[Rfam]
RNA sequence: AGCUAAAGUAAAUAUUUGAACUGUAUAACCUCAAUAAUAUGGAUUGAGGGUCUCUACCAGGAACCAUAAAAUCCUGACUACAAAACUUUGUUUCAUUUUU
Numbered sequence: 001a002g003c004u005a006a007a008g009u010a011a012a013u014a015u016u017u018g019a020a021c022u023g024u025a026u027a028a029c030c031u032c033a034a035u036a037a038u039a040u041g042g043a044u045u046g047a048g049g050g051u052c053u054c055u056a057c058c059a060g061g062a063a064c065c066a067u068a069a070a071a072u073c074c075u076g077a078c079u080a081c082a083a084a085a086c087u088u089u090g091u092u093u094c095a096u097u098u099u100u
Stems, first nucleotide, its partner, number of pairs: 018086001022082004029049007058076005
The record is a 100-nucleotide sequence, which matches "Purine riboswitch aptamer" in Rfam.
Pairs were carried over by alignment from the consensus structure, which is taken from published work.